The family of this 80-nucleotide sequence from Medicago truncatula is "MIR5269 microRNA precursor family". Its family is annotated with miRNA-mediated post-transcriptional gene silencing and RISC complex in the Gene Ontology. A search with the family's covariance model found it, with a score of 77 bits. The organism belongs to Medicago, within Eukaryota. Pairs were carried over by alignment from the consensus structure, which was predicted with RNAalifold.

RNA sequence: UUGGAUGAAAUUAAUGUAGGACCUACACUUUGGAAAUAGAACCUACCUAAAGUGGUGGGACAUAAAUUGAUUUCACUCAA
Numbered sequence: 001u002u003g004g005a006u007g008a009a010a011u012u013a014a015u016g017u018a019g020g021a022c023c024u025a026c027a028c029u030u031u032g033g034a035a036a037u038a039g040a041a042c043c044u045a046c047c048u049a050a051a052g053u054g055g056u057g058g059g060a061c062a063u064a065a066a067u068u069g070a071u072u073u074c075a076c077u078c079a080a
Base pairs, nucleotide, nucleotide: 001080002079003078004077006075007074008073009072010071011070012069013068014067015066017064018063023058024057025056026054027053028052029051030050031049032048